[Rfam]
RNA sequence: GGAGUUAACUAGACAAUCGCUGCUUUUUUGUGUUUACAAGUGAUUAUAUAGUUGUUGUAAUUACAAAUGAAGGGGAGGAAAGUCCGGGCUCCAAAGGGCAGAGUGCCAGGUAACACCUGGGGGAUAUUAAUCUACGACAAGUGCAACAGAAAGAAAACCGCCGAUAAUUAUUUAUAAUAUGUUAUAGAAUAAUAUGGGUAAGGGUGAAAAGGCGUGGUAAGAGCACACCAUCCGAAUUGGUAACAAUUCGCGUUAUGUAAACUCCACUCGGAGCAAGGCUAAAUAGAAGUUCAACAGUAUGGUCCGUACUGAACUUGGGUAAGCUGCUGAAACUAGUGUGUGAAUGCUAGUUUAGAUGAAUGAUUGUCCGAGACAGAACCCGGCUUAUCGGUUAACUCCUUUU
Numbered sequence: 001g002g003a004g005u006u007a008a009c010u011a012g013a014c015a016a017u018c019g020c021u022g023c024u025u026u027u028u029u030g031u032g033u034u035u036a037c038a039a040g041u042g043a044u045u046a047u048a049u050a051g052u053u054g055u056u057g058u059a060a061u062u063a064c065a066a067a068u069g070a071a072g073g074g075g076a077g078g079a080a081a082g083u084c085c086g087g088g089c090u091c092c093a094a095a096g097g098g099c100a101g102a103g104u105g106c107c108a109g110g111u112a113a114c115a116c117c118u119g120g121g122g123g124a125u126a127u128u129a130a131u132c133u134a135c136g137a138c139a140a141g142u143g144c145a146a147c148a149g150a151a152a153g154a155a156a157a158c159c160g161c162c163g164a165u166a167a168u169u170a171u172u173u174a175u176a177a178u179a180u181g182u183u184a185u186a187g188a189a190u191a192a193u194a195u196g197g198g199u200a201a202g203g204g205u206g207a208a209a210a211g212g213c214g215u216g217g218u219a220a221g222a223g224c225a226c227a228c229c230a231u232c233c234g235a236a237u238u239g240g241u242a243a244c245a246a247u248u249c250g251c252g253u254u255a256u257g258u259a260a261a262c263u264c265c266a267c268u269c270g271g272a273g274c275a276a277g278g279c280u281a282a283a284u285a286g287a288a289g290u291u292c293a294a295c296a297g298u299a300u301g302g303u304c305c306g307u308a309c310u311g312a313a314c315u316u317g318g319g320u321a322a323g324c325u326g327c328u329g330a331a332a333c334u335a336g337u338g339u340g341u342g343a344a345u346g347c348u349a350g351u352u353u354a355g356a357u358g359a360a361u362g363a364u365u366g367u368c369c370g371a372g373a374c375a376g377a378a379c380c381c382g383g384c385u386u387a388u389c390g391g392u393u394a395a396c397u398c399c400u401u402u403u
Base pairs, nucleotide, nucleotide: 001399002398003397004396005395006394007393008392009391010390011388012368013367014366015365016364017363018362020075021074023072024071025070026069028067080386081385082384084383085382086381087380088379089273090272091271092270096305097304098303099302101269102268103267104266105265106120107119108118109117110116121135122133123132124131125130136264137263141262142261143258144257145256158203159202160199161198162197164195165194166193168191211229212228214226215225216224233250234249235248236247237246238245239244277325278324279323280322287316288315289314290313291312292311296310297309298308299307300306332351333350334349335348336347337346338345339344